[Rfam]
RNA sequence: UAUAAACAGGCGAGAACCAUUUAAAUCCUGAUUUAAAUGGUUCUCACAAACGU
Number, nucleotide and partner (000 for none) at each position: 001u000002a000003u000004a000005a000006a000007c000008a000009g000010g047011c000012g045013a044014g043015a042016a041017c040018c039019a038020u037021u036022u035023a034024a033025a032026u031027c000028c000029u000030g000031a026032u025033u024034u023035a022036a021037a020038u019039g018040g017041u016042u015043c014044u013045c012046a000047c010048a000049a000050a000051c000052g000053u000

The family of this 53-nucleotide sequence from Dysphania ambrosioides is "Plastid-ccsA-ndhD-1 3UTR RNA". By type it is a cis-regulatory element. Rfam's curators put it in the seed alignment. Lineage of the source: Eukaryota > Euphyllophyta > Amaranthaceae > Chenopodioideae > Dysphania. About the family: Plastid-ccsA-ndhD-1 is a non-coding RNA (ncRNA) recognised in plastids. It was found in the three prime untranslated region (3UTR) of ccsA and ndhD genes, its 3UTR location suggests a role in transcript maturation.